The record is an 86-nucleotide RNA from Halobacteroides halobius, which matches "ZMP/ZTP riboswitch aptamer (pfl RNA motif)" in Rfam. The base pairs follow the family's consensus structure, which is taken from published work. It scores 67 bits against the family's covariance model. Taxonomically the source falls in Halobacteroides halobius (Bacteria, Bacillota, Clostridia, Halobacteroides).
RNA sequence: UGCUUAUUAUGUGACUGACGGAUUAGGAUGGGAUUAACCAUCAAGGAGCAUAAUAAGGAGAAUUGCCGACCGUCUGGGCAGAUAGU
Numbered sequence: 001u002g003c004u005u006a007u008u009a010u011g012u013g014a015c016u017g018a019c020g021g022a023u024u025a026g027g028a029u030g031g032g033a034u035u036a037a038c039c040a041u042c043a044a045g046g047a048g049c050a051u052a053a054u055a056a057g058g059a060g061a062a063u064u065g066c067c068g069a070c071c072g073u074c075u076g077g078g079c080a081g082a083u084a085g086u
Base pairs, nucleotide, nucleotide: 003057004056005055006054007053008052009051010050011049012048015045016044017074018073019072020071021070028041029040030039031038063081064080065079066078067077